[Rfam]
RNA sequence: UUUUGUGGUUUUGCCGCUAUCCUUGCGCGCCUUUUUAUCGAGAGCGUCAGGGGUGGGGUAUUUCCACGUCAACGCUGCAAUUUUAGAGUUACUGGAGUAAUUUGAAUGGCCCGUAUUGCUGGUGUAAACAUACCAGAC
Number, nucleotide and partner (000 for none) at each position: 001u000002u000003u080004u079005g078006u077007g076008g075009u074010u000011u072012u071013g000014c000015c000016g000017c000018u000019a000020u000021c122022c121023u000024u000025g000026c113027g112028c000029g110030c000031c000032u000033u000034u137035u136036u000037a000038u000039c000040g000041a000042g000043a000044g000045c000046g000047u000048c000049a000050g000051g000052g000053g000054u000055g000056g000057g000058g000059u000060a000061u000062u000063u000064c000065c000066a000067c000068g000069u000070c000071a012072a011073c000074g009075c008076u007077g006078c005079a004080a003081u000082u000083u000084u000085a000086g000087a000088g000089u000090u000091a000092c000093u000094g000095g000096a000097g000098u000099a000100a000101u000102u000103u000104g000105a000106a000107u000108g000109g000110c029111c000112c027113g026114u000115a000116u000117u000118g000119c000120u000121g022122g021123u000124g000125u000126a000127a000128a000129c000130a000131u000132a000133c000134c000135a000136g035137a034138c000